This 73-nucleotide RNA from Eptatretus burgeri belongs to the Rfam family "Small nucleolar RNA SNORD18".
The literature on the family includes a 1993 paper in Nucleic Acids Res by Prislei et al., "Two different snoRNAs are encoded in introns of amphibian and human L1 ribosomal protein genes".
The family's consensus secondary structure was predicted with PFOLD.
The organism belongs to Eptatretus, within Eukaryota.
Its Rfam clan is "SNORD18 clan".
The match comes from Rfam's covariance-model search (48 bits).
RNA sequence: AGGCAAUGAUGAAUGAUCACCUAUGGUCCGUGUUUCUGACAUGCGCUGAUUUUAAAAAAGGGGUUCUGAGCCU
Numbered sequence: 001a002g003g004c005a006a007u008g009a010u011g012a013a014u015g016a017u018c019a020c021c022u023a024u025g026g027u028c029c030g031u032g033u034u035u036c037u038g039a040c041a042u043g044c045g046c047u048g049a050u051u052u053u054a055a056a057a058a059a060g061g062g063g064u065u066c067u068g069a070g071c072c073u
Stems, first nucleotide, its partner, number of pairs: 001073004